[Rfam]
RNA sequence: UGUGAGGGUGAUGAGUUGCACCAAUCAGUCGGGGUGUCUGCUGCAGUGGCACCAGCACCUCGACCCGAUCCAACCUGAGGACACACACUGUGCACAGGGGCCAUCUGACUCUAC
Numbered sequence: 001u002g003u004g005a006g007g008g009u010g011a012u013g014a015g016u017u018g019c020a021c022c023a024a025u026c027a028g029u030c031g032g033g034g035u036g037u038c039u040g041c042u043g044c045a046g047u048g049g050c051a052c053c054a055g056c057a058c059c060u061c062g063a064c065c066c067g068a069u070c071c072a073a074c075c076u077g078a079g080g081a082c083a084c085a086c087a088c089u090g091u092g093c094a095c096a097g098g099g100g101c102c103a104u105c106u107g108a109c110u111c112u113a114c
Base pairs, nucleotide, nucleotide: 006111007110008109025068026067028065029063030062031061032060034058035057036056040053042051043050044049
RNA: Small nucleolar RNA SNORD67